The family of this 186-nucleotide RNA from Thiohalobacter thiocyanaticus is "6S / SsrS RNA". Lineage of the source: Bacteria > Pseudomonadati > Pseudomonadota > Thiohalobacteraceae > Thiohalobacter. E. coli 6S RNA was the first non coding RNA to be sequenced, but its function was unknown until recently. It consists of 184 nucleotides that fold into an extended hairpin structure with a large single-stranded internal bulge. The 6S RNA specifically associates with RNA polymerase holoenzyme containing the sigma70 specificity factor. The family's RNA type in Rfam is non-coding RNA gene. Pairs were carried over by alignment from the consensus structure, which is taken from published work.

RNA sequence: CACCCCCUGCGCUACAGGUCAGCGGUCAGGUAAUUCUUGAGCCGACAAUCUUUGACCUCGGGAACAGGCUUCAGCGGCCGGUGCGCACGACCGCCAUGCGCGGUAAGCCUGAAGGUACGCUGCGAAGUUCCCAACUUGAACUUACGGUUCAAGGUCAACGGCCGCAACGGUACGGGCGGAGGGUGC
Numbered sequence: 001c002a003c004c005c006c007c008u009g010c011g012c013u014a015c016a017g018g019u020c021a022g023c024g025g026u027c028a029g030g031u032a033a034u035u036c037u038u039g040a041g042c043c044g045a046c047a048a049u050c051u052u053u054g055a056c057c058u059c060g061g062g063a064a065c066a067g068g069c070u071u072c073a074g075c076g077g078c079c080g081g082u083g084c085g086c087a088c089g090a091c092c093g094c095c096a097u098g099c100g101c102g103g104u105a106a107g108c109c110u111g112a113a114g115g116u117a118c119g120c121u122g123c124g125a126a127g128u129u130c131c132c133a134a135c136u137u138g139a140a141c142u143u144a145c146g147g148u149u150c151a152a153g154g155u156c157a158a159c160g161g162c163c164g165c166a167a168c169g170g171u172a173c174g175g176g177c178g179g180a181g182g183g184u185g186c
Stems, first nucleotide, its partner, number of pairs: 002184004007179004013172003018168002035154009060132003064128002071122001073121003077116003085108002090104005
Dot-bracket structure: .((((.((((..(((..((...............(((((((((................(((.((.....(.(((.(((.....((...(((((.....)))))..)).....)))..))))....)).))).............)))))))))............)).)))...)))).))))..